[Rfam]
Nucleotides: 127
Base pairs, nucleotide, nucleotide: 020116022114023113025111026110030106031105033103034102035101036100038098039097040096041095042094
Number, partner (000 for none) and nucleotide at each position: 001000u002000c003000a004000c005000a006000a007000a008000g009000a010000a011000a012000c013000g014000u015000u016000g017000a018000c019000u020116g021000c022114c023113a024000u025111g026110u027000g028000u029000c030106a031105c032000a033103u034102u035101c036100u037000g038098a039097u040096u041095g042094g043000a044000c045000a046000u047000g048000a049000a050000a051000a052000g053000g054000u055000g056000u057000g058000c059000c060000c061000a062000a063000g064000a065000g066000u067000c068000a069000g070000c071000u072000c073000u074000a075000a076000c077000a078000u079000u080000u081000u082000u083000u084000u085000g086000u087000u088000c089000a090000u091000c092000g093000u094042c095041c096040a097039a098038u099000c100036a101035g102034a103033a104000c105031g106030u107000a108000a109000c110026a111025c112000g113023u114022g115000a116020c117000a118000g119000u120000c121000a122000a123000c124000g125000u126000u127000u